[Rfam]
RNA sequence: CCGGGCCGUGCUGUAGCAGCACAGAAUGGUUUGUGGGUUGUACUGAGAUGCAGGCCGUGCUGUGCUGCAGCAGUAAGGCCUGG
Numbered sequence: 001c002c003g004g005g006c007c008g009u010g011c012u013g014u015a016g017c018a019g020c021a022c023a024g025a026a027u028g029g030u031u032u033g034u035g036g037g038u039u040g041u042a043c044u045g046a047g048a049u050g051c052a053g054g055c056c057g058u059g060c061u062g063u064g065c066u067g068c069a070g071c072a073g074u075a076a077g078g079c080c081u082g083g
Stems, first nucleotide, its partner, number of pairs: 001083006013071002016068009026058010
Shown here is an 83-nucleotide RNA from Conger conger, a member of the family "mir-15 microRNA precursor family".
The literature on the family includes a 2002 paper in Proc Natl Acad Sci U S A by Calin et al., "Frequent deletions and down-regulation of micro- RNA genes miR15 and miR16 at 13q14 in chronic lymphocytic leukemia".
Its Rfam clan is "mir-15 clan".
The base pairs follow the family's consensus structure, which was predicted with RNAalifold.
The match comes from Rfam's covariance-model search (67 bits).
Its family is annotated with miRNA-mediated post-transcriptional gene silencing and RISC complex in the Gene Ontology.
Rfam describes the family as follows. This family represents the related mir-15a and mir-15b sequences. In humans miR-15a and miR-16 are clustered within 0.5 kb at 13q14.
The source organism's lineage runs through Eukaryota, Metazoa, Elopocephalai, Elopomorpha and Conger.